[Rfam]
RNA sequence: CCACCGGUGUCACCCGGUGAUGCUAGGGCUGUGAAUAAAGAGCUAGCCUGACAAAGUAACAAAAGAUUGGAAACGAUCUGGGGGAUUAUUUUGCGAGGAAUACCCCUCCUGAGAGCCAGACCUCGGGUAAGUGC
Numbered sequence: 001c002c003a004c005c006g007g008u009g010u011c012a013c014c015c016g017g018u019g020a021u022g023c024u025a026g027g028g029c030u031g032u033g034a035a036u037a038a039a040g041a042g043c044u045a046g047c048c049u050g051a052c053a054a055a056g057u058a059a060c061a062a063a064a065g066a067u068u069g070g071a072a073a074c075g076a077u078c079u080g081g082g083g084g085a086u087u088a089u090u091u092u093g094c095g096a097g098g099a100a101u102a103c104c105c106c107u108c109c110u111g112a113g114a115g116c117c118a119g120a121c122c123u124c125g126g127g128u129a130a131g132u133g134c
Stems, first nucleotide, its partner, number of pairs: 002019006027048005032039001064079006080106004091098002108127006
The family of this 134-nucleotide sequence from Legionella oakridgensis is "Group II catalytic intron D1-D4-7". Gene Ontology term of the family: Group II intron splicing. Rfam describes the family as follows. Group II introns are found in rRNA, tRNA and mRNA of organelles in fungi, plants and protists, and also in mRNA in bacteria. Taxonomically the source falls in Legionella oakridgensis (Bacteria, Pseudomonadati, Legionellaceae, Legionella).